[Rfam]
RNA sequence: AGGCAGCUGGAAUAGCCGCCCUUCUCCAGGGGCAGCCCAGGCUUCAGCAUCUCUUUCUGAGAAAAAGCCACCCCAGGGG
Numbered sequence: 001a002g003g004c005a006g007c008u009g010g011a012a013u014a015g016c017c018g019c020c021c022u023u024c025u026c027c028a029g030g031g032g033c034a035g036c037c038c039a040g041g042c043u044u045c046a047g048c049a050u051c052u053c054u055u056u057c058u059g060a061g062a063a064a065a066a067g068c069c070a071c072c073c074c075a076g077g078g079g
Stems, first nucleotide, its partner, number of pairs: 002017003007040004019032004050062004
RNA: DUF3085 RNA
Organism: Pseudonaja textilis